[Rfam]
RNA: PreQ1-II (pre queuosine) riboswitch aptamer
Organism: Pseudolactococcus reticulitermitis
RNA sequence: UUUGCUAUACUUGUACUUGCUUGAAAUAAGCCUCAUGUGUUGCCUAUUUCAAGCCCUCUGUACUUUCUCGCUUUGACAGAGCAUAUUACAAUCGCUGAUGCGAUAAAGGAGAUUUUAUG
Numbered sequence: 001u002u003u004g005c006u007a008u009a010c011u012u013g014u015a016c017u018u019g020c021u022u023g024a025a026a027u028a029a030g031c032c033u034c035a036u037g038u039g040u041u042g043c044c045u046a047u048u049u050c051a052a053g054c055c056c057u058c059u060g061u062a063c064u065u066u067c068u069c070g071c072u073u074u075g076a077c078a079g080a081g082c083a084u085a086u087u088a089c090a091a092u093c094g095c096u097g098a099u100g101c102g103a104u105a106a107a108g109g110a111g112a113u114u115u116u117a118u119g
Stems, first nucleotide, its partner, number of pairs: 019054010056081006068111001071108003091104005